Rfam assigns this 164-nucleotide RNA from Caenorhabditis nigoni to the family "Nematode sRNA ceN72-3_ceN74-2". NCBI's taxonomy places the organism under Eukaryota, Protostomia, Nematoda, Peloderinae, Caenorhabditis. It scores 95 bits against the family's covariance model. The literature on the family includes a 2015 paper in J Cell Sci by Kowalski et al., "Non-coding stem-bulge RNAs are required for cell proliferation and embryonic development in C. elegans".
[Rfam]
RNA sequence: UUUCACGGUCCGGCGUUGAUGGGUUAUCGUACUAAUUCUUCUGCUUGCAGGAGGCCCGUUCUUCAGGAAUCUGUCUGUUGAACAAACCCGCGUUUCUCACCAUUCGCACCCCGCGUUCUUCACAGUUCGCACCCCCUUCCCAUCAGCACCAACUUGACCGCUGU
Numbered sequence: 001u002u003u004c005a006c007g008g009u010c011c012g013g014c015g016u017u018g019a020u021g022g023g024u025u026a027u028c029g030u031a032c033u034a035a036u037u038c039u040u041c042u043g044c045u046u047g048c049a050g051g052a053g054g055c056c057c058g059u060u061c062u063u064c065a066g067g068a069a070u071c072u073g074u075c076u077g078u079u080g081a082a083c084a085a086a087c088c089c090g091c092g093u094u095u096c097u098c099a100c101c102a103u104u105c106g107c108a109c110c111c112c113g114c115g116u117u118c119u120u121c122a123c124a125g126u127u128c129g130c131a132c133c134c135c136c137u138u139c140c141c142a143u144c145a146g147c148a149c150c151a152a153c154u155u156g157a158c159c160g161c162u163g164u
Base pairs, nucleotide, nucleotide: 003163006160007159008158009157010156012150013149015147016146017145018144019143020142021141022140023139037054038053039052040051041050042049043048113130114129115128118125
The base pairs follow the family's consensus structure, which was predicted with WAR.